[Rfam]
RNA sequence: AUAAAGUUUUCAAACCGUUUCCUAUUGACAUUGAGUUCUCCUACUUGACCUUGGUUAUGCCAAGGUUUUU
Numbered sequence: 001a002u003a004a005a006g007u008u009u010u011c012a013a014a015c016c017g018u019u020u021c022c023u024a025u026u027g028a029c030a031u032u033g034a035g036u037u038c039u040c041c042u043a044c045u046u047g048a049c050c051u052u053g054g055u056u057a058u059g060c061c062a063a064g065g066u067u068u069u070u
Base pairs, nucleotide, nucleotide: 048066049065050064051063052062053061054060055059